Overview:
The record is a 195-nucleotide sequence from Lachancea thermotolerans, which matches "Small nucleolar RNA snR34" in Rfam. It is annotated as an H/ACA-box small nucleolar RNA. Pairs were carried over by alignment from the consensus structure, which was predicted with WAR. It scores 124 bits against the family's covariance model.
RNA sequence: GAAUCAAAAAUGCACGGAAACAAUGCCACAGUUAGCUACGUCUGUCUUCUAACAGCUGCUAAUUGCCAGUAUUUCAUUUUUAAAUCGAAAUACCAGUUUCCCAGAACAAAAAUGACUGGAUUUUAGGAAGUUCGCGGUUGGUGUCUCUCUCAAAGAGGGAGGAUAGACCGGGAAUGUCGAAGAAAGGCUACAAGU
Numbered sequence: 001g002a003a004u005c006a007a008a009a010a011u012g013c014a015c016g017g018a019a020a021c022a023a024u025g026c027c028a029c030a031g032u033u034a035g036c037u038a039c040g041u042c043u044g045u046c047u048u049c050u051a052a053c054a055g056c057u058g059c060u061a062a063u064u065g066c067c068a069g070u071a072u073u074u075c076a077u078u079u080u081u082a083a084a085u086c087g088a089a090a091u092a093c094c095a096g097u098u099u100c101c102c103a104g105a106a107c108a109a110a111a112a113u114g115a116c117u118g119g120a121u122u123u124u125a126g127g128a129a130g131u132u133c134g135c136g137g138u139u140g141g142u143g144u145c146u147c148u149c150u151c152a153a154a155g156a157g158g159g160a161g162g163a164u165a166g167a168c169c170g171g172g173a174a175u176g177u178c179g180a181a182g183a184a185a186g187g188c189u190a191c192a193a194g195u
Stems, first nucleotide, its partner, number of pairs: 016075004030064007042055004116182001130175004135170001137168003143164003147161005